[Rfam]
RNA sequence: CUUUGUACUCUUCCACAGCUUUCUUGAACUGCAUCCCCCACACUUGGGAGAGAGGUAUUCACUGCACGUGAGCACACUUGGAUCUCUUGCAGUUCAAUAAAGCUGUGGGAAAACACAGAGA
Number, nucleotide and partner (000 for none) at each position: 001c000002u000003u118004u117005g116006u115007a000008c000009u000010c000011u000012u000013c108014c107015a106016c000017a104018g103019c102020u101021u100022u099023c000024u097025u096026g095027a094028a000029c092030u091031g090032c089033a088034u000035c000036c000037c000038c000039c000040a000041c000042a000043c000044u000045u000046g000047g000048g000049a000050g000051a000052g000053a000054g000055g000056u000057a000058u000059u000060c000061a000062c000063u000064g000065c000066a000067c000068g000069u000070g000071a000072g000073c000074a000075c000076a000077c000078u000079u000080g000081g000082a000083u000084c000085u000086c000087u000088u033089g032090c031091a030092g029093u000094u027095c026096a025097a024098u000099a022100a021101a020102g019103c018104u017105g000106u015107g014108g013109g000110a000111a000112a000113a000114c000115a006116c005117a004118g003119a000120g000121a000
This 121-nucleotide sequence from Camphora micrantha belongs to the Rfam family "MIR396 microRNA precursor family". Taxonomically the source falls in Camphora (Eukaryota, Embryophyta, Euphyllophyta, Magnoliopsida). A search with the family's covariance model found it, with a score of 88 bits.